Rfam assigns this 100-nucleotide RNA sequence from Vitis rotundifolia to the family "Small nucleolar RNA R30/Z108". snoR30 is a C/D box small nucleolar RNA which acts as a methylation guide for 18S ribosomal RNA in plants. Clan: SNORD100 clan. For this family Rfam cites "Experimental RNomics. Identification of 140 Candidates for Small Non-Messenger RNAs in the Plant Arabidopsis thaliana" (Marker et al., Curr Biol, 2002). Rfam links the family to the GO terms RNA processing and nucleolus.
[Rfam]
RNA sequence: AGAGGCUGCAAUGAGGAUUAUAAGCUCCCUCUACUGAAAUCAAGUUGAGGAAGAUUGCUGGCAGAAUCGAACCACAAACUAAAUUGCCAUCACUGAGUAG
Numbered sequence: 001a002g003a004g005g006c007u008g009c010a011a012u013g014a015g016g017a018u019u020a021u022a023a024g025c026u027c028c029c030u031c032u033a034c035u036g037a038a039a040u041c042a043a044g045u046u047g048a049g050g051a052a053g054a055u056u057g058c059u060g061g062c063a064g065a066a067u068c069g070a071a072c073c074a075c076a077a078a079c080u081a082a083a084u085u086g087c088c089a090u091c092a093c094u095g096a097g098u099a100g
Stems, first nucleotide, its partner, number of pairs: 006100004